This 98-nucleotide sequence from Brassica rapa belongs to the Rfam family "Small nucleolar RNA R64/Z200 family". The family's consensus secondary structure was predicted with PFOLD.
[Rfam]
RNA sequence: CUUCUGCUGUGAUGAUCUUUUGAAUAAAAUUCACAUGUCAGACUUCAGAGAUUCAUUAAGAAUCAAUGAGAAUAAAUAUUCAUAACUCUGAGCAGUUU
Numbered sequence: 001c002u003u004c005u006g007c008u009g010u011g012a013u014g015a016u017c018u019u020u021u022g023a024a025u026a027a028a029a030u031u032c033a034c035a036u037g038u039c040a041g042a043c044u045u046c047a048g049a050g051a052u053u054c055a056u057u058a059a060g061a062a063u064c065a066a067u068g069a070g071a072a073u074a075a076a077u078a079u080u081c082a083u084a085a086c087u088c089u090g091a092g093c094a095g096u097u098u
Base pairs, nucleotide, nucleotide: 004095005094006093007092050064051063052062053061
A reference for the family is Marker et al. (2002), "Experimental RNomics: identification of 140 candidates for small non-messenger RNAs in the plant Arabidopsis thaliana", Curr Biol.